Rfam assigns this 100-nucleotide sequence from Methanosarcina barkeri to the family "Pyrrolysine insertion sequence TetR".
The family's RNA type in Rfam is cis-regulatory element.
Its family is annotated with pyrrolysine incorporation in the Gene Ontology.

Nucleotides: 100
Stems, first nucleotide, its partner, number of pairs: 019056005032049003036045003059067002
Number, partner (000 for none) and nucleotide at each position: 001000u002000a003000g004000u005000u006000c007000g008000u009000a010000g011000c012000u013000c014000a015000g016000u017000a018000u019056c020055c021054a022053g023052a024000u025000u026000a027000u028000a029000a030000u031000c032049g033048g034047a035000u036045g037044u038043a039000c040000c041000u042000c043038u044037a045036u046000u047034u048033c049032c050000g051000a052023u053022c054021u055020g056019g057000a058000a059067g060066g061000u062000u063000c064000a065000a066060u067059c068000u069000g070000g071000a072000a073000g074000a075000u076000u077000a078000u079000g080000a081000a082000a083000a084000u085000a086000u087000g088000g089000a090000u091000g092000a093000a094000g095000c096000u097000g098000c099000a100000a